[Rfam]
RNA sequence: GUGCCAUGAGGUGGAGUGGCUGGGUGAUUCCCUCUUCACCCAGGAAAGUCCCCGGGCCCUUGUCUGCACAGAUGCAGUCCCGGAAACGGGAGAACUUGAGGCGCAGGAACUUGCUCGCAAUUGGCGGCGGGGCUGAGACUCGUGUGGAGCCUUGCGAUCCUGUGUCCAAGAGAACUGGCCGUUGUUUCACAGUUAUCCACUCGGCUCACUAUAGUGGGCUAACAGAACGGGGCUUACGAUCUCAUGGUU
Numbered sequence: 001g002u003g004c005c006a007u008g009a010g011g012u013g014g015a016g017u018g019g020c021u022g023g024g025u026g027a028u029u030c031c032c033u034c035u036u037c038a039c040c041c042a043g044g045a046a047a048g049u050c051c052c053c054g055g056g057c058c059c060u061u062g063u064c065u066g067c068a069c070a071g072a073u074g075c076a077g078u079c080c081c082g083g084a085a086a087c088g089g090g091a092g093a094a095c096u097u098g099a100g101g102c103g104c105a106g107g108a109a110c111u112u113g114c115u116c117g118c119a120a121u122u123g124g125c126g127g128c129g130g131g132g133c134u135g136a137g138a139c140u141c142g143u144g145u146g147g148a149g150c151c152u153u154g155c156g157a158u159c160c161u162g163u164g165u166c167c168a169a170g171a172g173a174a175c176u177g178g179c180c181g182u183u184g185u186u187u188c189a190c191a192g193u194u195a196u197c198c199a200c201u202c203g204g205c206u207c208a209c210u211a212u213a214g215u216g217g218g219c220u221a222a223c224a225g226a227a228c229g230g231g232g233c234u235u236a237c238g239a240u241c242u243c244a245u246g247g248u249u
Base pairs, nucleotide, nucleotide: 003248004247005246006245007244008243009242010241011240014202015201016200017199018198019197021042022041023040024039025038026037027036046235047234048233050232051231052230053229065076066075067074068073078091079090080089081088082087094176096174102164103163104162105161106160107159111157112156113155114154123151124150125149138145139144204219205218206217207216208215209214